[Rfam]
RNA sequence: AUGUCGACUGCGGGAGAGAGCGGGAUUUGCAGAAAUUGCCGCCGCCGAAGGGGAAAAUGCCCAUAAUCUCUCAGGCAAAAGGACCGUAGACGAUAG
Numbered sequence: 001a002u003g004u005c006g007a008c009u010g011c012g013g014g015a016g017a018g019a020g021c022g023g024g025a026u027u028u029g030c031a032g033a034a035a036u037u038g039c040c041g042c043c044g045c046c047g048a049a050g051g052g053g054a055a056a057a058u059g060c061c062c063a064u065a066a067u068c069u070c071u072c073a074g075g076c077a078a079a080a081g082g083a084c085c086g087u088a089g090a091c092g093a094u095a096g
Base pairs, nucleotide, nucleotide: 006091008089009088010087011086012085013084020042021041022040023039044076045075046074047072048071051070052069053068057064058063